[Rfam]
RNA sequence: CCCCGGGUUGAAACCCGGGGCUAUUUCCUUUCGCCUCUCCGAGGCU
Numbered sequence: 001c002c003c004c005g006g007g008u009u010g011a012a013a014c015c016c017g018g019g020g021c022u023a024u025u026u027c028c029u030u031u032c033g034c035c036u037c038u039c040c041g042a043g044g045c046u
Base pairs, nucleotide, nucleotide: 001020002019003018004017005016006015007014008013033045034044035043036042037041

The family of this 46-nucleotide RNA sequence from Prosthecobacter gellanilyticus is "Acido-Lenti-1 RNA". Pairs were carried over by alignment from the consensus structure, which is taken from published work. The organism belongs to Prosthecobacter, within Bacteria.